[Rfam]
The family of this 117-nucleotide RNA sequence from Daphnia galeata is "mir-283 microRNA precursor family". Gene Ontology terms of the family: miRNA-mediated post-transcriptional gene silencing and RISC complex. The source organism's lineage runs through Eukaryota, Protostomia, Pancrustacea, Daphniidae and Daphnia. For this family Rfam cites "Direct sequencing and expression analysis of a large number of miRNAs in Aedes aegypti and a multi-species survey of novel mosquito miRNAs" (Li et al., BMC Genomics, 2009). The family is grouped with related families in Rfam's "mir-216 clan".

RNA sequence: AUGGCUUCUGAUACGGCCAAAUAUCAGCAGGUAAUUCUGGGCAAUUAUUAUCCUUGAACUUGAUUCAAAUACAAGGAAGAUCCCAGACUGCCGGCUGGUAUCAGGCUGUUAGAAUGC
Numbered sequence: 001a002u003g004g005c006u007u008c009u010g011a012u013a014c015g016g017c018c019a020a021a022u023a024u025c026a027g028c029a030g031g032u033a034a035u036u037c038u039g040g041g042c043a044a045u046u047a048u049u050a051u052c053c054u055u056g057a058a059c060u061u062g063a064u065u066c067a068a069a070u071a072c073a074a075g076g077a078a079g080a081u082c083c084c085a086g087a088c089u090g091c092c093g094g095c096u097g098g099u100a101u102c103a104g105g106c107u108g109u110u111a112g113a114a115u116g117c
Stems, first nucleotide, its partner, number of pairs: 013109006021101008030092002034089001036087006